Shown here is an 87-nucleotide sequence from Betta splendens, a member of the family "mir-726 microRNA precursor family".
Nucleotides: 087
Stems, first nucleotide, its partner, number of pairs: 003085009013075002016072001019070003023066006031058006038052002
Number, partner (000 for none) and nucleotide at each position: 001000u002000u003085g004084a005083g006082g007081g008080u009079a010078g011077g012000u013075c014074u015000a016072g017000a018000a019070u020069u021068c022000c023066g024065c025064u026063a027062g028061u029000u030000c031058u032057g033056a034055a035054c036053u037000a038052u039051u040000u041000a042000u043000g044000u045000u046000u047000g048000c049000u050000u051039a052038a053036a054035g055034u056033u057032c058031a059000c060000u061028a062027c063026u064025a065024g066023c067000a068021g069020a070019a071000c072016u073000c074014g075013g076000a077011u078010c079009u080008g081007c082006u083005c084004u085003u086000g087000a

The base pairs follow the family's consensus structure, which was predicted with RNAalifold. Gene Ontology terms of the family: miRNA-mediated post-transcriptional gene silencing and RISC complex. The match comes from Rfam's covariance-model search (82 bits). NCBI's taxonomy places the organism under Eukaryota, Deuterostomia, Craniata, Actinopteri, Betta.